This 273-nucleotide RNA sequence from Bacillus subtilis belongs to the Rfam family "BsrG". About the family: bsrE, bsrG and bsrH pair through intermolecular interactions with antisense sRNAs. They form type I toxin/antitoxin system that includes an mRNA encoding for a short, toxic peptide (bsrE, bsrG and bsrH) and an antitoxin that is comprised of an antisense RNA. bsrG encodes a 39-amino-acid toxin, and the 180 nucleotide antisense sRNA called SR4 acts as the antitoxin (they overlap by 123 nucleotides). SR4 interaction with the 3'UTR of bsrG RNA promotes bsrG degradation and inhibits its translation. BsrG interferes with cell envelope biosynthesis, causes membrane invaginations and delocalisation of the cell wall synthesis and initiates autolysis. bsrE RNA encodes 30 amino-acid toxin peptide. A reference for the family is Meissner et al. (2016), "In Vitro Characterization of the Type I Toxin-Antitoxin System bsrE/SR5 from Bacillus subtilis", J Biol Chem. Rfam links the family to the GO terms toxin activity and autolysis. Rfam classes the family as a small RNA. The source organism's lineage runs through Bacteria, Bacilli, Caryophanales, Bacillaceae and Bacillus subtilis subsp. subtilis. The base pairs follow the family's consensus structure, which was predicted with WAR.
RNA sequence: UAUAAAUGAAUAUUGGCUUUCAACAUCUCAAGGGCGGUCUGGCUCACUCCCUCAUGAAAGGGGGUGAUGCACGUGUCAACAUUUCAAGCAUUAAUGCUUAUGCUUGCUUUCGGGUCAUUUAUAAUUGCCCUGUUGACUUAUAUAAAGAAGAAAUAGACCCACCCCUUGAGCUCGGCAAAGUAAAAGGGUAAAGUCUAUCCUAAAUACUUUCAUGAAGUUGUUAAGCCAGCCCUCUUGAUGGGCCAACAUUUAUACUGACCCGGCGGCAACCGG
Numbered sequence: 001u002a003u004a005a006a007u008g009a010a011u012a013u014u015g016g017c018u019u020u021c022a023a024c025a026u027c028u029c030a031a032g033g034g035c036g037g038u039c040u041g042g043c044u045c046a047c048u049c050c051c052u053c054a055u056g057a058a059a060g061g062g063g064g065u066g067a068u069g070c071a072c073g074u075g076u077c078a079a080c081a082u083u084u085c086a087a088g089c090a091u092u093a094a095u096g097c098u099u100a101u102g103c104u105u106g107c108u109u110u111c112g113g114g115u116c117a118u119u120u121a122u123a124a125u126u127g128c129c130c131u132g133u134u135g136a137c138u139u140a141u142a143u144a145a146a147g148a149a150g151a152a153a154u155a156g157a158c159c160c161a162c163c164c165c166u167u168g169a170g171c172u173c174g175g176c177a178a179a180g181u182a183a184a185a186g187g188g189u190a191a192a193g194u195c196u197a198u199c200c201u202a203a204a205u206a207c208u209u210u211c212a213u214g215a216a217g218u219u220g221u222u223a224a225g226c227c228a229g230c231c232c233u234c235u236u237g238a239u240g241g242g243c244c245a246a247c248a249u250u251u252a253u254a255c256u257g258a259c260c261c262g263g264c265g266g267c268a269a270c271c272g273g
Stems, first nucleotide, its partner, number of pairs: 001254005007248002011245001014228006027170008037158004044067003048063005075137007088103003112129002181202002229243004267273001